The family of this 67-nucleotide RNA from Bacillus sp. FJAT-27986 is "Bacillaceae-1 RNA". By type it is a small RNA.

RNA sequence: UUUGAUGGAACAAAGACUAAAGACACCACAUCCUGUGGUAACGUCUUUGUGACCAACAUCGUGUUGG
Numbered sequence: 001u002u003u004g005a006u007g008g009a010a011c012a013a014a015g016a017c018u019a020a021a022g023a024c025a026c027c028a029c030a031u032c033c034u035g036u037g038g039u040a041a042c043g044u045c046u047u048u049g050u051g052a053c054c055a056a057c058a059u060c061g062u063g064u065u066g067g
Stems, first nucleotide, its partner, number of pairs: 011049007025039005053067005